[Rfam]
RNA sequence: GGGCAGGCUUAGUCAAGUGGUUACUUCGGUUCUCUUUCAGUCUUCUGUGACAAGUAAAGCGUUCGAACCACCGACGCCGUCCUGACCCAUUU
Numbered sequence: 001g002g003g004c005a006g007g008c009u010u011a012g013u014c015a016a017g018u019g020g021u022u023a024c025u026u027c028g029g030u031u032c033u034c035u036u037u038c039a040g041u042c043u044u045c046u047g048u049g050a051c052a053a054g055u056a057a058a059g060c061g062u063u064c065g066a067a068c069c070a071c072c073g074a075c076g077c078c079g080u081c082c083u084g085a086c087c088c089a090u091u092u
Stems, first nucleotide, its partner, number of pairs: 002087002004084004012075003017071004025067005
Annotation:
Vault RNA: a 92-nucleotide sequence from Nephila pilipes. A reference for the family is Stadler et al. (2009), "Evolution of Vault RNAs", Mol Biol Evol. Taxonomically the source falls in Nephila (Eukaryota, Metazoa, Ecdysozoa, Chelicerata). The family's RNA type in Rfam is non-coding RNA gene. The match comes from Rfam's covariance-model search (46 bits).